[Rfam]
RNA sequence: GUAAAAGAGCAUUUGAUGGAUGCCUUGGCAUUGGAAGGCGACGAAGGACGUGGUAGGCUGCGAUAAGCUGUGGGGAAGAGUCAACAUCUUUUGAUCCACAGAUUUCCGAAUGGGGAAACCCAUCACUUUAGUGAUAUCUUUAUCUGAAUUCAUAGGAUGAAGAGGCAAACCUGGGGAACUGAACCAUCUCAUUACCCAGAGGAAAGGACAUCAACCGAGACUCCGUUAGUAGUGGCGAGCGAACGCGGACCAGGCCAGUAAUUUAGGACAAACAACAAGAAUGAUUUGGAAAAAUCAGCCAAAGAAGGUGAUAGCCCUGUAAUGGUAAUGUUGUCUUAAAUUCUUGAGUAGGACGGGACACGUGAAAUCCUGUUUGAACGUGGGGGGACCACCCUCCAAGCCUAAGUACUCUCCAGUGACCGAUAGUGAACAAGUACCGUGAGGGAAAGGUGAAAAGAACCCCAAUGAGGGGAGUGAAAUAGUAUCUGAAAUUGAAUGCUUACAAG
Numbered sequence: 001g002u003a004a005a006a007g008a009g010c011a012u013u014u015g016a017u018g019g020a021u022g023c024c025u026u027g028g029c030a031u032u033g034g035a036a037g038g039c040g041a042c043g044a045a046g047g048a049c050g051u052g053g054u055a056g057g058c059u060g061c062g063a064u065a066a067g068c069u070g071u072g073g074g075g076a077a078g079a080g081u082c083a084a085c086a087u088c089u090u091u092u093g094a095u096c097c098a099c100a101g102a103u104u105u106c107c108g109a110a111u112g113g114g115g116a117a118a119c120c121c122a123u124c125a126c127u128u129u130a131g132u133g134a135u136a137u138c139u140u141u142a143u144c145u146g147a148a149u150u151c152a153u154a155g156g157a158u159g160a161a162g163a164g165g166c167a168a169a170c171c172u173g174g175g176g177a178a179c180u181g182a183a184c185c186a187u188c189u190c191a192u193u194a195c196c197c198a199g200a201g202g203a204a205a206g207g208a209c210a211u212c213a214a215c216c217g218a219g220a221c222u223c224c225g226u227u228a229g230u231a232g233u234g235g236c237g238a239g240c241g242a243a244c245g246c247g248g249a250c251c252a253g254g255c256c257a258g259u260a261a262u263u264u265a266g267g268a269c270a271a272a273c274a275a276c277a278a279g280a281a282u283g284a285u286u287u288g289g290a291a292a293a294a295u296c297a298g299c300c301a302a303a304g305a306a307g308g309u310g311a312u313a314g315c316c317c318u319g320u321a322a323u324g325g326u327a328a329u330g331u332u333g334u335c336u337u338a339a340a341u342u343c344u345u346g347a348g349u350a351g352g353a354c355g356g357g358a359c360a361c362g363u364g365a366a367a368u369c370c371u372g373u374u375u376g377a378a379c380g381u382g383g384g385g386g387g388a389c390c391a392c393c394c395u396c397c398a399a400g401c402c403u404a405a406g407u408a409c410u411c412u413c414c415a416g417u418g419a420c421c422g423a424u425a426g427u428g429a430a431c432a433a434g435u436a437c438c439g440u441g442a443g444g445g446a447a448a449g450g451u452g453a454a455a456a457g458a459a460c461c462c463c464a465a466u467g468a469g470g471g472g473a474g475u476g477a478a479a480u481a482g483u484a485u486c487u488g489a490a491a492u493u494g495a496a497u498g499c500u501u502a503c504a505a506g
Base pairs, nucleotide, nucleotide: 007501008500009499010498011497012496013495014494015493016492022486023450024449027421028420029418030417031416032415033414034413035412036410037409038166039165046107047106048105049062050061051060068101069100070099071098072097073096074095077089078088079087112121113120114119122135123134124133125132126131137163138162139161140160141159142158143157144156145155170201171199172198173197174196175195181188182187211218212217221406222249223248224247225246226245232240233239252403253402254401255400260342261341262340263339264338267335268334269333270332271331276324277323282297283296284295285294286293300304306318307317308316351375352374353373354372355371356370357369358368382397383396384395385394386393437444438443460472461471462470463469